[Rfam]
RNA sequence: ACGGGAACUGCACGACCGCAAAUCUGACUCGCCGUGAAUUUCAACGGCUUGGGAUUGCGGCCGUGU
Numbered sequence: 001a002c003g004g005g006a007a008c009u010g011c012a013c014g015a016c017c018g019c020a021a022a023u024c025u026g027a028c029u030c031g032c033c034g035u036g037a038a039u040u041u042c043a044a045c046g047g048c049u050u051g052g053g054a055u056u057g058c059g060g061c062c063g064u065g066u
Stems, first nucleotide, its partner, number of pairs: 010066004016060006024053002031048005